[Rfam]
Nucleotides: 101
Base pairs, nucleotide, nucleotide: 001078003076005075006074007073008072009071010070011069016037017036021033022032024031045063046062047061048060049059050058
Number, partner (000 for none) and nucleotide at each position: 001078c002000u003076c004000a005075c006074g007073c008072g009071g010070g011069a012000u013000c014000u015000u016037g017036g018000g019000c020000u021033c022032g023000g024031g025000g026000u027000a028000u029000u030000c031024c032022c033021g034000g035000u036017c037016c038000u039000u040000c041000c042000g043000g044000u045063g046062u047061u048060c049059g050058a051000u052000c053000c054000u055000g056000g057000a058050u059049c060048g061047g062046a063045c064000u065000c066000u067000u068000u069011u070010c071009c072008c073007g074006c075005g076003g077000c078001g079000g080000c081000u082000u083000a084000a085000c086000c087000g088000g089000a090000a091000a092000a093000a094000g095000g096000a097000a098000u099000u100000g101000c